The record is a 194-nucleotide sequence from Crocodylus porosus, which matches "Small nucleolar RNA SNORA74" in Rfam. U19 belongs to the H/ACA class of snoRNAs. snoRNAs bind a number of proteins (including dyskerin, Gar1p and Nop10p in the case of the H/ACA class) to form snoRNP complexes. This class are thought to guide the sites of modification of uridines to pseudouridines by forming direct base pairing interactions with substrate RNAs. Targets may include ribosomal and spliceosomal RNAs but the exact functions of many snoRNAs, including U19, are not confirmed. Co-precipitation of U19 snoRNA with RNase MRP RNA suggests that U19 may be involved in pre-rRNA processing. Gene Ontology terms of the family: nucleolus and RNA processing. Its Rfam clan is "SNORA74 clan". Lineage of the source: Eukaryota > Vertebrata > Euteleostomi > Sarcopterygii > Crocodylus. The family has 24 seed sequences and 1,348 matches in Rfam 15.1. By type it is an H/ACA-box small nucleolar RNA.

RNA sequence: UCCAGCAGUAAUAAGCAGUCCAGAGCUAUACAAUGUGACGGUGUUACACGGCUGAGAGAAAAAUACUAGUCUUUUCAUCUGGUUGUUGCUUCCAUUCUGGAGGCAACUGAUGCCAACAUGGAAUGGUAAUGUGCUUCCCUGACAGUGUGUUAAGCAUGUCUUAAUUGCUUAAUGCUAGUCUAGAAGCAUACAAA
Numbered sequence: 001u002c003c004a005g006c007a008g009u010a011a012u013a014a015g016c017a018g019u020c021c022a023g024a025g026c027u028a029u030a031c032a033a034u035g036u037g038a039c040g041g042u043g044u045u046a047c048a049c050g051g052c053u054g055a056g057a058g059a060a061a062a063a064u065a066c067u068a069g070u071c072u073u074u075u076c077a078u079c080u081g082g083u084u085g086u087u088g089c090u091u092c093c094a095u096u097c098u099g100g101a102g103g104c105a106a107c108u109g110a111u112g113c114c115a116a117c118a119u120g121g122a123a124u125g126g127u128a129a130u131g132u133g134c135u136u137c138c139c140u141g142a143c144a145g146u147g148u149g150u151u152a153a154g155c156a157u158g159u160c161u162u163a164a165u166u167g168c169u170u171a172a173u174g175c176u177a178g179u180c181u182a183g184a185a186g187c188a189u190a191c192a193a194a
Stems, first nucleotide, its partner, number of pairs: 001056001003054004008049002012046001015042002018039003021035002064128005070122002077119002080112002083109001085107001087105007131189007147175003151171006